[Rfam]
RNA sequence: ACCUUCUUGUUUCAAAGCACUGUGCUAAAAUUGCAAAAAUUAAGGCAAUGCCUUGGUCUUUGUAAUAAUGCUAGCACAGUAUAUACAAGAAGAAGAACAAAUGCACUAGAUCGAAAAAAGACUUGGGUGGACCUCUUUCUUAAUGUCCAGUGUCCUGUGUCUUAAGAUCCUAGUGCGAUAUCU
Number, nucleotide and partner (000 for none) at each position: 001a000002c000003c000004u000005u000006c000007u000008u000009g000010u000011u000012u000013c000014a000015a000016a000017g000018c000019a000020c079021u078022g000023u076024g075025c074026u073027a072028a000029a000030a069031u068032u067033g066034c000035a000036a060037a059038a000039a057040u056041u055042a054043a053044g052045g051046c050047a000048a000049u000050g046051c045052c044053u043054u042055g041056g040057u039058c000059u037060u036061u000062g000063u000064a000065a000066u033067a032068a031069u030070g000071c000072u027073a026074g025075c024076a023077c000078a021079g020080u000081a000082u000083a000084u000085a000086c000087a000088a000089g000090a000091a000092g000093a000094a000095g000096a000097a000098c000099a000100a000101a000102u177103g176104c175105a174106c173107u172108a171109g170110a000111u000112c000113g000114a000115a000116a000117a000118a000119a000120g000121a000122c000123u000124u000125g000126g151127g000128u149129g148130g147131a146132c000133c000134u000135c000136u000137u000138u000139c000140u000141u000142a000143a000144u000145g000146u131147c130148c129149a128150g000151u126152g000153u000154c000155c000156u000157g000158u000159g000160u000161c000162u000163u000164a000165a000166g000167a000168u000169c000170c109171u108172a107173g106174u105175g104176c103177g102178a000179u000180a000181u000182c000183u000
RNA: Small nucleolar RNA SNORA81
Organism: Monodelphis domestica